[Rfam]
RNA sequence: GUCGAGAGGGCGGAGAAUACAAUACCCGAAAGGGAAAUAAUCCCAGCCGUUCUAUGUUUCGGUUUUCGAACCUCUUGACGCCACUGU
Numbered sequence: 001g002u003c004g005a006g007a008g009g010g011c012g013g014a015g016a017a018u019a020c021a022a023u024a025c026c027c028g029a030a031a032g033g034g035a036a037a038u039a040a041u042c043c044c045a046g047c048c049g050u051u052c053u054a055u056g057u058u059u060c061g062g063u064u065u066u067c068g069a070a071c072c073u074c075u076u077g078a079c080g081c082c083a084c085u086g087u
Stems, first nucleotide, its partner, number of pairs: 001079009013044001015042002025034003045064005
Shown here is an 87-nucleotide sequence from Histophilus somni, a member of the family "sRNA-Xcc1".
The family's consensus secondary structure was predicted with RNAalifold.
The organism belongs to Histophilus somni, within Bacteria.
The family's RNA type in Rfam is small RNA.
Rfam 15.1 lists 421 matches to the family in 299 species.
A reference for the family is Chen et al. (2011), "sRNA-Xcc1, an integron-encoded transposon- and plasmid-transferred trans-acting sRNA, is under the positive control of the key virulence regulators HrpG and HrpX of Xanthomonas campestris pathovar campestris", RNA Biol.